RNA: Fibro-purF RNA
RNA sequence: GUUCGUUUCCUCGCUUGCACCCGUCCGGGUGGGCUAUGACCAUAAGGUAAGGGAAACAUCCAUUCACAAGAGGC
Numbered sequence: 001g002u003u004c005g006u007u008u009c010c011u012c013g014c015u016u017g018c019a020c021c022c023g024u025c026c027g028g029g030u031g032g033g034c035u036a037u038g039a040c041c042a043u044a045a046g047g048u049a050a051g052g053g054a055a056a057c058a059u060c061c062a063u064u065c066a067c068a069a070g071a072g073g074c
Base pairs, nucleotide, nucleotide: 005057006056007055008054009053010052011051018031019030020029021028022027039048040047041046
Dot-bracket structure: ....(((((((......(((((....))))).......(((....)))..))))))).................